[Rfam]
RNA sequence: GAUGGCCGGCCCAUCGGUAGCGACUUGCAGGAGUAGCUAUCAAACCACCUUUAGCUGCUUCAAUUAAGAGUUGAGGUAGUGAGCAUCAAAGGAAAAGGCAUCGAUAAAGGUGUCAGGU
Number, nucleotide and partner (000 for none) at each position: 001g015002a014003u013004g012005g011006c000007c000008g000009g000010c000011c005012c004013a003014u002015c001016g041017g040018u039019a038020g037021c036022g000023a034024c033025u032026u031027g000028c000029a000030g000031g026032a025033g024034u023035a000036g021037c020038u019039a018040u017041c016042a000043a000044a000045c000046c117047a000048c092049c091050u090051u089052u088053a086054g080055c079056u000057g077058c076059u075060u000061c073062a072063a071064u070065u000066a000067a000068g000069a000070g064071u063072u062073g061074a000075g059076g058077u057078a000079g055080u054081g000082a000083g000084c000085a000086u053087c000088a052089a051090a050091g049092g048093a000094a000095a000096a000097g114098g113099c112100a111101u110102c109103g000104a000105u000106a000107a000108a000109g102110g101111u100112g099113u098114c097115a000116g000117g046118u000
Shown here is a 118-nucleotide RNA from Niabella ginsenosidivorans, a member of the family "Group II catalytic intron D1-D4-2". About the family: Group II introns are found in rRNA, tRNA and mRNA of organelles in fungi, plants and protists, and also in mRNA in bacteria. The pairing is the family consensus, mapped onto this sequence. A reference for the family is Bonen and Vogel (2001), "The ins and outs of group II introns", Trends Genet. Rfam 15.1 lists 1,231 matches to the family in 625 species. Its family is annotated with Group II intron splicing in the Gene Ontology. The match comes from Rfam's covariance-model search (104 bits).